RNA sequence: CGGCUGGCGCCAGGCACGGUGGCAGCGGGCAACAUGGCCGAGAGGCCGCGGCCUCCCGGCGGCGCCGUGUCUGCGACCGCCU
Numbered sequence: 001c002g003g004c005u006g007g008c009g010c011c012a013g014g015c016a017c018g019g020u021g022g023c024a025g026c027g028g029g030c031a032a033c034a035u036g037g038c039c040g041a042g043a044g045g046c047c048g049c050g051g052c053c054u055c056c057c058g059g060c061g062g063c064g065c066c067g068u069g070u071c072u073g074c075g076a077c078c079g080c081c082u
Stems, first nucleotide, its partner, number of pairs: 003080002006077001008075003013071009023061001025060002027054004035048005

The family of this 82-nucleotide sequence from Macaca mulatta is "mir-564 microRNA precursor family". The match comes from Rfam's covariance-model search (87 bits). Rfam 15.1 lists 15 matches to the family in 15 species. Rfam links the family to the GO terms miRNA-mediated post-transcriptional gene silencing and RISC complex.